[Rfam]
This 118-nucleotide sequence from Puniceispirillum marinum belongs to the Rfam family "Glycine riboswitch aptamer". It scores 51 bits against the family's covariance model.
RNA sequence: AUACAUGGUAGGGGAGAGUCCAGCCGCCUGUAACCGGUAUAUCCGCAUAGCAGUCGUAGUUGGCACCGAAGGAGCAACACCCCACUAAACUCUCAGGUACCAGUACUUUAUCAUGUAA
Numbered sequence: 001a002u003a004c005a006u007g008g009u010a011g012g013g014g015a016g017a018g019u020c021c022a023g024c025c026g027c028c029u030g031u032a033a034c035c036g037g038u039a040u041a042u043c044c045g046c047a048u049a050g051c052a053g054u055c056g057u058a059g060u061u062g063g064c065a066c067c068g069a070a071g072g073a074g075c076a077a078c079a080c081c082c083c084a085c086u087a088a089a090c091u092c093u094c095a096g097g098u099a100c101c102a103g104u105a106c107u108u109u110a111u112c113a114u115g116u117a118a
Stems, first nucleotide, its partner, number of pairs: 006113008020063004065098003068094002072092003